[Rfam]
RNA sequence: GGGGCUGGUCGAAAGAUCUGGGUCCACCGUGGAGCGGGGAAUUUCCCC
Numbered sequence: 001g002g003g004g005c006u007g008g009u010c011g012a013a014a015g016a017u018c019u020g021g022g023u024c025c026a027c028c029g030u031g032g033a034g035c036g037g038g039g040a041a042u043u044u045c046c047c048c
Stems, first nucleotide, its partner, number of pairs: 002025005007018004
DUF3800-XI RNA: a 48-nucleotide RNA.
Rfam describes the family as follows. Actinobacteria, Firmicutes, Proteobacteria, Spirochaetes (1 example).
It is one of the family's seed sequences.